[Rfam]
RNA: glmS glucosamine-6-phosphate activated ribozyme aptamer
Organism: Butyrivibrio fibrisolvens
RNA sequence: UUAGAAACUUUAGCGCCAUGUACCGUAAGAUACGGUUAACGAGGAUUCGGGUUUAUCGAGAUUAUUCGGCGGAUGCCCGGACGUAUGCAUGAAUGCGUAAGGCAGUUGUAAAUACCGGAACGAUCCGGCAACAAAUUAACUGCUGUCAUGUGA
Numbered sequence: 001u002u003a004g005a006a007a008c009u010u011u012a013g014c015g016c017c018a019u020g021u022a023c024c025g026u027a028a029g030a031u032a033c034g035g036u037u038a039a040c041g042a043g044g045a046u047u048c049g050g051g052u053u054u055a056u057c058g059a060g061a062u063u064a065u066u067c068g069g070c071g072g073a074u075g076c077c078c079g080g081a082c083g084u085a086u087g088c089a090u091g092a093a094u095g096c097g098u099a100a101g102g103c104a105g106u107u108g109u110a111a112a113u114a115c116c117g118g119a120a121c122g123a124u125c126c127g128g129c130a131a132c133a134a135a136u137u138a139a140c141u142g143c144u145g146u147c148a149u150g151u152g153a
Stems, first nucleotide, its partner, number of pairs: 022036006047081002049078003056069004082097005102143006115128005